Rfam assigns this 98-nucleotide RNA from Cercophora samala to the family "tRNA". The organism belongs to Cercophora, within Eukaryota. Rfam classes the family as a transfer RNA. It scores 53 bits against the family's covariance model. About the family: Transfer RNA (tRNA) molecules are approximately 80 nucleotides in length.
[Rfam]
RNA sequence: GGGUGACUAGUCUAGUGGUCAGGACGCUUCGUUGUGGUUGUUCGUAAGAACAUCACAUACGAUCCGAAGAAACCCCGGUUCGAUUCCGGGGUCGCCCA
Numbered sequence: 001g002g003g004u005g006a007c008u009a010g011u012c013u014a015g016u017g018g019u020c021a022g023g024a025c026g027c028u029u030c031g032u033u034g035u036g037g038u039u040g041u042u043c044g045u046a047a048g049a050a051c052a053u054c055a056c057a058u059a060c061g062a063u064c065c066g067a068a069g070a071a072a073c074c075c076c077g078g079u080u081c082g083a084u085u086c087c088g089g090g091g092u093c094g095c096c097c098a
Base pairs, nucleotide, nucleotide: 001097002096003095004094005093006092007091010025011024012023013022027069028068029067030066031065074090075089076088077087078086
Dot-bracket structure: (((((((..((((........)))).(((((.................................)))))....(((((.......)))))))))))).